[Rfam]
RNA sequence: AACUUCCAGGUUACAGCCUAAAGUAUCAGGCUGAUGGCUGGUGACUUUUUGGUCACCAGCCU
Number, nucleotide and partner (000 for none) at each position: 001a000002a000003c000004u000005u000006c000007c000008a000009g000010g000011u000012u000013a000014c033015a032016g031017c030018c029019u000020a000021a000022a000023g000024u000025a000026u000027c000028a000029g018030g017031c016032u015033g014034a000035u000036g061037g060038c059039u058040g057041g056042u055043g054044a053045c052046u000047u000048u000049u000050u000051g000052g045053u044054c043055a042056c041057c040058a039059g038060c037061c036062u000